[Rfam]
RNA sequence: AUAGAAAUAGGUGAUGGAGUUCACCUUUAACCGCCCUAUAGCUGAUGACUCCUACCAACAA
Numbered sequence: 001a002u003a004g005a006a007a008u009a010g011g012u013g014a015u016g017g018a019g020u021u022c023a024c025c026u027u028u029a030a031c032c033g034c035c036c037u038a039u040a041g042c043u044g045a046u047g048a049c050u051c052c053u054a055c056c057a058a059c060a061a
Base pairs, nucleotide, nucleotide: 010025011024012023013022016052017051018050019049020048021047033042034041
Dot-bracket structure: .........[[[[..((((((]]]].......((......))....)))))).........
Shown here is a 61-nucleotide sequence, a member of the family "Fluoride riboswitch aptamer (crcB RNA motif)". A search with the family's covariance model found it, with a score of 62 bits.